[Rfam]
RNA sequence: GAAGCGCGAAGACGGCUCCGGGCGACCGGGUAGGACCGUCACCGCCUCGUCGCAAGGCGAGGCUGCC
Numbered sequence: 001g002a003a004g005c006g007c008g009a010a011g012a013c014g015g016c017u018c019c020g021g022g023c024g025a026c027c028g029g030g031u032a033g034g035a036c037c038g039u040c041a042c043c044g045c046c047u048c049g050u051c052g053c054a055a056g057g058c059g060a061g062g063c064u065g066c067c
Stems, first nucleotide, its partner, number of pairs: 011040005018029004044063008

The record is a 67-nucleotide RNA, which matches "Transposase-2 RNA" in Rfam. Rfam's curators put it in the seed alignment. The family has 151 seed sequences and 214 matches in Rfam 15.1.